The record is an 81-nucleotide RNA from Phrynocephalus forsythii, which matches "mir-130 microRNA precursor family" in Rfam. The literature on the family includes a 2002 paper in Curr Biol by Lagos-Quintana et al., "Identification of tissue-specific microRNAs from mouse". The match comes from Rfam's covariance-model search (42 bits).
[Rfam]
RNA sequence: CAAUGGCUGGAGCCCUUUAAACCUGGCCCUGUUGGUACCCCUGGUACUGACUGGGCCAGGUUUAAAGGGCUGUAGCCAUUG
Numbered sequence: 001c002a003a004u005g006g007c008u009g010g011a012g013c014c015c016u017u018u019a020a021a022c023c024u025g026g027c028c029c030u031g032u033u034g035g036u037a038c039c040c041c042u043g044g045u046a047c048u049g050a051c052u053g054g055g056c057c058a059g060g061u062u063u064a065a066a067g068g069g070c071u072g073u074a075g076c077c078a079u080u081g
Stems, first nucleotide, its partner, number of pairs: 003080001005077005012070008022060008

Its family is annotated with RISC complex and miRNA-mediated post-transcriptional gene silencing in the Gene Ontology.